[Rfam]
RNA sequence: CCAGGGAGGUUGUGGAUGACAGAAUCACCCAAUGUGAUCUUUGAUCAAAGAUCACAUUGGGUGAUUCUGUCAUCCACAACCUCCCUGG
Numbered sequence: 001c002c003a004g005g006g007a008g009g010u011u012g013u014g015g016a017u018g019a020c021a022g023a024a025u026c027a028c029c030c031a032a033u034g035u036g037a038u039c040u041u042u043g044a045u046c047a048a049a050g051a052u053c054a055c056a057u058u059g060g061g062u063g064a065u066u067c068u069g070u071c072a073u074c075c076a077c078a079a080c081c082u083c084c085c086u087g088g
Stems, first nucleotide, its partner, number of pairs: 002087022026063012
RNA: mir-135 microRNA precursor family